[Rfam]
A member of the RNA family "MIR1886 microRNA precursor family" from Solanum lycopersicum, 52 nucleotides long. Pairs were carried over by alignment from the consensus structure, which was predicted with RNAalifold.

RNA sequence: UGAGAUGAAACCAGCGUUUGAACAUGUAAUUUUACGUUAAUUUCAUCUCAUG
Numbered sequence: 001u002g003a004g005a006u007g008a009a010a011c012c013a014g015c016g017u018u019u020g021a022a023c024a025u026g027u028a029a030u031u032u033u034a035c036g037u038u039a040a041u042u043u044c045a046u047c048u049c050a051u052g
Base pairs, nucleotide, nucleotide: 001050002049003048004047005046006045007044008043009042010041013038014037015036016035017034018029019028020027
It scores 63 bits against the family's covariance model.